[Rfam]
RNA sequence: GCUCCUGUCAGUUUAGCUGGUUUGCAUCAGCUGGCUACUGUGCUGUGCAAAUCCAUGCAAAACUGACUGUGGC
Numbered sequence: 001g002c003u004c005c006u007g008u009c010a011g012u013u014u015a016g017c018u019g020g021u022u023u024g025c026a027u028c029a030g031c032u033g034g035c036u037a038c039u040g041u042g043c044u045g046u047g048c049a050a051a052u053c054c055a056u057g058c059a060a061a062a063c064u065g066a067c068u069g070u071g072g073c
Stems, first nucleotide, its partner, number of pairs: 002072002005069001007067008016058002019054002021051007029044003
RNA: mir-19 microRNA precursor family